[Rfam]
RNA: MIR408 microRNA precursor family
RNA sequence: AGAAAAAGAAGAGCCACAAGCCAGGGAAGAGGCAGUGCAUGGGUAGGGCCAAAAACAGGUACUUCUGUUAGUAGCUCCAUCCAUGCUCUGCCUGUUCCCCGUCUUCAUCUGUCUCUUUCUGC
Dot-bracket structure: .................(((.(.(((((.((((((.((((((...((............................))...)))))).)))))).))))).).))).................
Numbered sequence: 001a002g003a004a005a006a007a008g009a010a011g012a013g014c015c016a017c018a019a020g021c022c023a024g025g026g027a028a029g030a031g032g033c034a035g036u037g038c039a040u041g042g043g044u045a046g047g048g049c050c051a052a053a054a055a056c057a058g059g060u061a062c063u064u065c066u067g068u069u070a071g072u073a074g075c076u077c078c079a080u081c082c083a084u085g086c087u088c089u090g091c092c093u094g095u096u097c098c099c100c101g102u103c104u105u106c107a108u109c110u111g112u113c114u115c116u117u118u119c120u121g122c
Stems, first nucleotide, its partner, number of pairs: 018105003022101001024099005030093006037086006046077002